The record is a 391-nucleotide sequence from Pseudarcicella hirudinis, which matches "Bacterial RNase P class A" in Rfam. The source organism's lineage runs through Bacteria, Pseudomonadati, Bacteroidota, Flectobacillaceae and Pseudarcicella.
RNA sequence: GAAAUAAGUCGUCUUAUCGCCUUUGCUUGCAGGGGAGGAAAGUCCGAACAACACAGAGCAUCAUGCUUCCUAACGGGAAGGUACUUAACUGGUGACGGUUUUGUAACAGACAGUGCCACAGAAAAUUACCGCCCUUUUGGCUUGCUGAGAGGGUAAGGGUGAAAAGGUAGAGUAAGAGCCUACCGCUCGGCUGGUGACAGCAGAGGCAUAGGUAAACCUCAUGCGUUGAAAGACCAAAUAGGCUGAUUGCUCAGUAAGAAAUUACUGUAAAAGGGCUGCUCGCCCGAAGUCAGCGGGUAGGUUGAUAGAGGCAGUAGGUGACUACUGUUCGAGAUAAAUGAUAAGACUAUCUUCGGGUAGACAGAAUUCGGCUUAUAGACUUAUUUUAUUU
Numbered sequence: 001g002a003a004a005u006a007a008g009u010c011g012u013c014u015u016a017u018c019g020c021c022u023u024u025g026c027u028u029g030c031a032g033g034g035g036a037g038g039a040a041a042g043u044c045c046g047a048a049c050a051a052c053a054c055a056g057a058g059c060a061u062c063a064u065g066c067u068u069c070c071u072a073a074c075g076g077g078a079a080g081g082u083a084c085u086u087a088a089c090u091g092g093u094g095a096c097g098g099u100u101u102u103g104u105a106a107c108a109g110a111c112a113g114u115g116c117c118a119c120a121g122a123a124a125a126u127u128a129c130c131g132c133c134c135u136u137u138u139g140g141c142u143u144g145c146u147g148a149g150a151g152g153g154u155a156a157g158g159g160u161g162a163a164a165a166g167g168u169a170g171a172g173u174a175a176g177a178g179c180c181u182a183c184c185g186c187u188c189g190g191c192u193g194g195u196g197a198c199a200g201c202a203g204a205g206g207c208a209u210a211g212g213u214a215a216a217c218c219u220c221a222u223g224c225g226u227u228g229a230a231a232g233a234c235c236a237a238a239u240a241g242g243c244u245g246a247u248u249g250c251u252c253a254g255u256a257a258g259a260a261a262u263u264a265c266u267g268u269a270a271a272a273g274g275g276c277u278g279c280u281c282g283c284c285c286g287a288a289g290u291c292a293g294c295g296g297g298u299a300g301g302u303u304g305a306u307a308g309a310g311g312c313a314g315u316a317g318g319u320g321a322c323u324a325c326u327g328u329u330c331g332a333g334a335u336a337a338a339u340g341a342u343a344a345g346a347c348u349a350u351c352u353u354c355g356g357g358u359a360g361a362c363a364g365a366a367u368u369c370g371g372c373u374u375a376u377a378g379a380c381u382u383a384u385u386u387u388a389u390u391u
Base pairs, nucleotide, nucleotide: 001387002386003385004384005383006382007381008380009379010378011376012346013345014344015343016342017341018340020035021034022033023032024031025030040374041373042372044371045370046369047368048367049228050227051226052225056281057280058279059278062223063222064221065220066080067079068078069077070076081107082105083104084103108219109218113217114216115213116212117211129158130157131154132153133152134151135150136149137148138147139146166184167183168182169181170180185207186205187204188203190201191200192199193198232303233302234301235300242294243293244292245291246290247289273285274284275283276282310329311328312327313326314325315324316323317322